[Rfam]
RNA: TPP riboswitch aptamer (THI element)
RNA sequence: AAAAAUGCACUGGGGUGCCUGUAUCUGCUUUUAGCUCUUGGCAUUUGGCCAGACUGGUGGCAGAUGAGGCUGAGAAAGUCCCUUUGAACCUGAACAGGGUAAUGCCUGCUUAGGGAGUGUGCAUUUUCUUUUC
Numbered sequence: 001a002a003a004a005a006u007g008c009a010c011u012g013g014g015g016u017g018c019c020u021g022u023a024u025c026u027g028c029u030u031u032u033a034g035c036u037c038u039u040g041g042c043a044u045u046u047g048g049c050c051a052g053a054c055u056g057g058u059g060g061c062a063g064a065u066g067a068g069g070c071u072g073a074g075a076a077a078g079u080c081c082c083u084u085u086g087a088a089c090c091u092g093a094a095c096a097g098g099g100u101a102a103u104g105c106c107u108g109c110u111u112a113g114g115g116a117g118u119g120u121g122c123a124u125u126u127u128c129u130u131u132u133c
Stems, first nucleotide, its partner, number of pairs: 006121005012082003016077001017070004089114004095108004